[Rfam]
RNA sequence: GGAUGUGAGGGCGAUCUGGCUGCGACAUCUGUCACCCCAUUGAUCGCCAGGGUUGAUUCGGCUGAUCUGGCUGGCUAGGCGGGUGUCCCCUUCCUCCCUCACCGCUCCAUGUGCGUCCCUCCCGAAGCUGCGCGCUCGGUCGAAGAGGACGACCAUCCCCGCUAGAGGAGGACCGGUCUUCGGUCAAGGGUAUACGAGUAGCUGCGCUCCCCUGCUAGAACCUCCAAACAAGCUCCCAAUGGCUCACUUGCCAGAUGGCUGCAGUGGCCAAAGCUGGGCCAGGUUGAAGCCAGGAGCUUCAGCUCAGUCUCCCAUGUGGGUGGCAGGGGC
Numbered sequence: 001g002g003a004u005g006u007g008a009g010g011g012c013g014a015u016c017u018g019g020c021u022g023c024g025a026c027a028u029c030u031g032u033c034a035c036c037c038c039a040u041u042g043a044u045c046g047c048c049a050g051g052g053u054u055g056a057u058u059c060g061g062c063u064g065a066u067c068u069g070g071c072u073g074g075c076u077a078g079g080c081g082g083g084u085g086u087c088c089c090c091u092u093c094c095u096c097c098c099u100c101a102c103c104g105c106u107c108c109a110u111g112u113g114c115g116u117c118c119c120u121c122c123c124g125a126a127g128c129u130g131c132g133c134g135c136u137c138g139g140u141c142g143a144a145g146a147g148g149a150c151g152a153c154c155a156u157c158c159c160c161g162c163u164a165g166a167g168g169a170g171g172a173c174c175g176g177u178c179u180u181c182g183g184u185c186a187a188g189g190g191u192a193u194a195c196g197a198g199u200a201g202c203u204g205c206g207c208u209c210c211c212c213u214g215c216u217a218g219a220a221c222c223u224c225c226a227a228a229c230a231a232g233c234u235c236c237c238a239a240u241g242g243c244u245c246a247c248u249u250g251c252c253a254g255a256u257g258g259c260u261g262c263a264g265u266g267g268c269c270a271a272a273g274c275u276g277g278g279c280c281a282g283g284u285u286g287a288a289g290c291c292a293g294g295a296g297c298u299u300c301a302g303c304u305c306a307g308u309c310u311c312c313c314a315u316g317u318g319g320g321u322g323g324c325a326g327g328g329g330c
Base pairs, nucleotide, nucleotide: 001108002107003106005102006101007100008099009098010097011096013093014092018090019089024087025086026085027084028083029082030081031080032079033078035074036073037070038069039068042067043066044065045064046062047061048060116171117170118168119167120166121165122139123138124137125136127135128134141161142160147158148157149156201274202273203272208267210266212264213263214262215261223255224254229250230249231248232247302330303329305326307324308323309322312320313319